The record is a 94-nucleotide RNA sequence from Secundilactobacillus kimchicus, which matches "TPP riboswitch aptamer (THI element)" in Rfam. Gene Ontology term of the family: thiamine pyrophosphate binding. Pairs were carried over by alignment from the consensus structure, which is taken from published work.

RNA sequence: UCUGUUCGUCUGGGGUGCCAUCCACUGGCUGAGAUUAAACCCAUCGAACCUGAUGUAGUUGAUACUACCGAAGGAAGCGCGACUAACCCUAAAA
Numbered sequence: 001u002c003u004g005u006u007c008g009u010c011u012g013g014g015g016u017g018c019c020a021u022c023c024a025c026u027g028g029c030u031g032a033g034a035u036u037a038a039a040c041c042c043a044u045c046g047a048a049c050c051u052g053a054u055g056u057a058g059u060u061g062a063u064a065c066u067a068c069c070g071a072a073g074g075a076a077g078c079g080c081g082a083c084u085a086a087c088c089c090u091a092a093a094a
Base pairs, nucleotide, nucleotide: 006082007081008080009079011043012042013041014040016037017029018028019027020026049074050073051072055068056067057066058065